[Rfam]
RNA sequence: AUGCAUUGUUUGACAGACCUGGAGCAGUUACUGUCUGCUACUAAGGUUUUCACUACAGAUUCGAGAAAAAAGUGUCCUCCGGCUUCCUGUCUGUCUGCUCAUGGCAGCCAAGAUGGAAUAGAGUAAUACAGGG
Number, nucleotide and partner (000 for none) at each position: 001a000002u063003g062004c000005a060006u059007u057008g056009u000010u000011u052012g051013a000014c000015a049016g048017a047018c046019c045020u000021g000022g000023a039024g038025c037026a036027g035028u000029u000030a000031c000032u000033g000034u000035c027036u026037g025038c024039u023040a000041c000042u000043a000044a000045g019046g018047u017048u016049u015050u000051c012052a011053c000054u000055a000056c008057a007058g000059a006060u005061u000062c003063g002064a000065g000066a000067a000068a000069a000070a000071a000072g000073u000074g000075u125076c000077c123078u122079c121080c000081g000082g000083c116084u000085u000086c000087c112088u111089g000090u000091c107092u106093g105094u104095c103096u000097g000098c000099u000100c000101a000102u000103g095104g094105c093106a092107g091108c000109c000110a000111a088112g087113a000114u000115g000116g083117a000118a000119u000120a000121g079122a078123g077124u000125a075126a000127u000128a000129c000130a000131g000132g000133g000
This 133-nucleotide RNA sequence from Prolemur simus belongs to the Rfam family "Small nucleolar RNA SNORA31". On this family, see Huttenhofer et al., EMBO J 2001: "RNomics: an experimental approach that identifies 201 candidates for novel, small, non-messenger RNAs in mouse". Gene Ontology terms of the family: nucleolus and RNA processing. NCBI's taxonomy places the organism under Eukaryota, Bilateria, Gnathostomata, Dipnotetrapodomorpha, Prolemur. From the family's description: ACA31 (SNORA31) belongs to the H/ACA class of snoRNAs which are thought to guide the sites of modification of uridines to pseudouridines. ACA31 is predicted to guide the pseudouridylation of U3713 in 28S rRNA and U218 in 18S rRNA. This family includes the mouse homologue snoMBI-161.